[Rfam]
RNA: Archaeal signal recognition particle RNA
RNA sequence: AGAGAUGGAUAGGUCGGGCAGUUAGGCCCUGCUCGUUACCCGCGAUAUGGCCUUUAGCGGGGACCAAACACCGCGGGCGUCCGGUCAGACCGGCCGGGGCCCCGGGAGCCAACGCAGAAGCCUCGUCCGUCGGGGACAGCGGUCCGCGAUGGCCGUCCGCAGGGACGCCCCAUCGCGGUUAGUCGGCGACAGCCCAUCAGGCGCGGAAGCGAGCAGUGGACCGCCGGACACCUGUCGCUCGACGGGUCGCGGGGUGGAGGAGGCAACCGGGAUUCCCCCGGCCGGAACGCCGGGCAAUCGCGGCUUCCACACU
Numbered sequence: 001a002g003a004g005a006u007g008g009a010u011a012g013g014u015c016g017g018g019c020a021g022u023u024a025g026g027c028c029c030u031g032c033u034c035g036u037u038a039c040c041c042g043c044g045a046u047a048u049g050g051c052c053u054u055u056a057g058c059g060g061g062g063a064c065c066a067a068a069c070a071c072c073g074c075g076g077g078c079g080u081c082c083g084g085u086c087a088g089a090c091c092g093g094c095c096g097g098g099g100c101c102c103c104g105g106g107a108g109c110c111a112a113c114g115c116a117g118a119a120g121c122c123u124c125g126u127c128c129g130u131c132g133g134g135g136a137c138a139g140c141g142g143u144c145c146g147c148g149a150u151g152g153c154c155g156u157c158c159g160c161a162g163g164g165a166c167g168c169c170c171c172a173u174c175g176c177g178g179u180u181a182g183u184c185g186g187c188g189a190c191a192g193c194c195c196a197u198c199a200g201g202c203g204c205g206g207a208a209g210c211g212a213g214c215a216g217u218g219g220a221c222c223g224c225c226g227g228a229c230a231c232c233u234g235u236c237g238c239u240c241g242a243c244g245g246g247u248c249g250c251g252g253g254g255u256g257g258a259g260g261a262g263g264c265a266a267c268c269g270g271g272a273u274u275c276c277c278c279c280g281g282c283c284g285g286a287a288c289g290c291c292g293g294g295c296a297a298u299c300g301c302g303g304c305u306u307c308c309a310c311a312c313u
Stems, first nucleotide, its partner, number of pairs: 001313002004310001006309004012065004016034006039061005045055001071303006079295004083290001090285010101271005108264003113259001115257001120255007127245008135236005141229001142180001144178008152169001154167005183227006194219004202211003